[Rfam]
RNA sequence: GAUAGGGCGCUGUCGUCAGCGUGAUGGGACACUGACGUAGGGUCAAUUAGCCUGGCUCAGGCCGGAUUCCGGCGACACCAGGUGGGCGGUCCGAGCCACGAGGGGGGAGGCUCGGACCGCCCGUC
Numbered sequence: 001g002a003u004a005g006g007g008c009g010c011u012g013u014c015g016u017c018a019g020c021g022u023g024a025u026g027g028g029a030c031a032c033u034g035a036c037g038u039a040g041g042g043u044c045a046a047u048u049a050g051c052c053u054g055g056c057u058c059a060g061g062c063c064g065g066a067u068u069c070c071g072g073c074g075a076c077a078c079c080a081g082g083u084g085g086g087c088g089g090u091c092c093g094a095g096c097c098a099c100g101a102g103g104g105g106g107g108a109g110g111c112u113c114g115g116a117c118c119g120c121c122c123g124u125c
Stems, first nucleotide, its partner, number of pairs: 001014005015051002018048001021032003033045004058074001061073005075083002085121013099106001